[Rfam]
RNA sequence: GCCUUAUGAAAGACAUGGGUAGGGAGAUGUCUCCGACAUACCCAAUUCUCACUACCUUGUCUUUCAUGAGGAU
Numbered sequence: 001g002c003c004u005u006a007u008g009a010a011a012g013a014c015a016u017g018g019g020u021a022g023g024g025a026g027a028u029g030u031c032u033c034c035g036a037c038a039u040a041c042c043c044a045a046u047u048c049u050c051a052c053u054a055c056c057u058u059g060u061c062u063u064u065c066a067u068g069a070g071g072a073u
Stems, first nucleotide, its partner, number of pairs: 008065008017057003021053002024050004

mir-71 microRNA precursor family: a 73-nucleotide RNA sequence from Arctia plantaginis. The literature on the family includes a 2009 paper in BMC Genomics by Li et al., "Direct sequencing and expression analysis of a large number of miRNAs in Aedes aegypti and a multi-species survey of novel mosquito miRNAs".